[Rfam]
The family of this 306-nucleotide RNA sequence from Zingiber officinale is "Plant signal recognition particle RNA". A search with the family's covariance model found it, with a score of 176 bits. Its Rfam clan is "SRP clan". A reference for the family is Wild et al. (2002), "Towards the structure of the mammalian signal recognition particle", Curr Opin Struct Biol.
RNA sequence: GCUGAGCUGGGUUGUGCCAGCUUGUAACCCAAGCGGGGGCUGUGAGUGGUUGGAAUGAAUGGAUUGGAUUUAGAGGCGUGGAUCAUCUCUGCGAUUUCCAGGCUUGCCCGUUCCAAGUUGAUGGUGGGCCGGACCAAUUGGGCGAAGGCCCGGUUAGACCGGUUCUUAGAGAGGAGGGCACUGGGCCAGGCUGGUUUCACAGAGCAGUGAUUACCCACCCUCCUUCAACGGUGGAAGGAUAACAGGCCUGGGUAUAGUUGGCCACAAUUACCUCCUAGAUCCAACCCAAUUCAGAUUAAUCAUUUU
Numbered sequence: 001g002c003u004g005a006g007c008u009g010g011g012u013u014g015u016g017c018c019a020g021c022u023u024g025u026a027a028c029c030c031a032a033g034c035g036g037g038g039g040c041u042g043u044g045a046g047u048g049g050u051u052g053g054a055a056u057g058a059a060u061g062g063a064u065u066g067g068a069u070u071u072a073g074a075g076g077c078g079u080g081g082a083u084c085a086u087c088u089c090u091g092c093g094a095u096u097u098c099c100a101g102g103c104u105u106g107c108c109c110g111u112u113c114c115a116a117g118u119u120g121a122u123g124g125u126g127g128g129c130c131g132g133a134c135c136a137a138u139u140g141g142g143c144g145a146a147g148g149c150c151c152g153g154u155u156a157g158a159c160c161g162g163u164u165c166u167u168a169g170a171g172a173g174g175a176g177g178g179c180a181c182u183g184g185g186c187c188a189g190g191c192u193g194g195u196u197u198c199a200c201a202g203a204g205c206a207g208u209g210a211u212u213a214c215c216c217a218c219c220c221u222c223c224u225u226c227a228a229c230g231g232u233g234g235a236a237g238g239a240u241a242a243c244a245g246g247c248c249u250g251g252g253u254a255u256a257g258u259u260g261g262c263c264a265c266a267a268u269u270a271c272c273u274c275c276u277a278g279a280u281c282c283a284a285c286c287c288a289a290u291u292c293a294g295a296u297u298a299a300u301c302a303u304u305u306u
Base pairs, nucleotide, nucleotide: 001040002039003038004023005022006021007020008019009018010017028037029036030035044305045304046303047302048301049300050299051298052297053296056293057292058290060288061286062285064283066281068280069279070278071277072276073275074273075272076271078265079264080263081262083260085258087257090254091253099250100249101248102247103246104245105244106243108238109237111236112235113234114233115232117229118228119227120226121225123223124222126165127164128163129162130161131160132159134157136155137154138153139152140151141150142149143148166171173219174218176215177214185208186207191202192201193200